[Rfam]
RNA: Small nucleolar RNA snR43
RNA sequence: CACUCCUAUUUCUGCCCCAUCUUCUUAUUACUCCAUAGAUUAAUGGGUUCUAGUAAAGGAGAAGAAAAAGCCGUGGAAUGGCUUCCCGCACUUGAUACUUCGCGGUUUAGCUUCAUUCCGCGGAUCGUGUGUAGUGGCAGGUUAUCCGGCUGCAGCAUUUUAUGUGCAGUCGGGCUGUCAUUGCUCUAUAUUU
Numbered sequence: 001c002a003c004u005c006c007u008a009u010u011u012c013u014g015c016c017c018c019a020u021c022u023u024c025u026u027a028u029u030a031c032u033c034c035a036u037a038g039a040u041u042a043a044u045g046g047g048u049u050c051u052a053g054u055a056a057a058g059g060a061g062a063a064g065a066a067a068a069a070g071c072c073g074u075g076g077a078a079u080g081g082c083u084u085c086c087c088g089c090a091c092u093u094g095a096u097a098c099u100u101c102g103c104g105g106u107u108u109a110g111c112u113u114c115a116u117u118c119c120g121c122g123g124a125u126c127g128u129g130u131g132u133a134g135u136g137g138c139a140g141g142u143u144a145u146c147c148g149g150c151u152g153c154a155g156c157a158u159u160u161u162a163u164g165u166g167c168a169g170u171c172g173g174g175c176u177g178u179c180a181u182u183g184c185u186c187u188a189u190a191u192u193u
Stems, first nucleotide, its partner, number of pairs: 003061004016047004020042001023039003071123010081111002086105003129186001131184002134181005146173005153166001155165004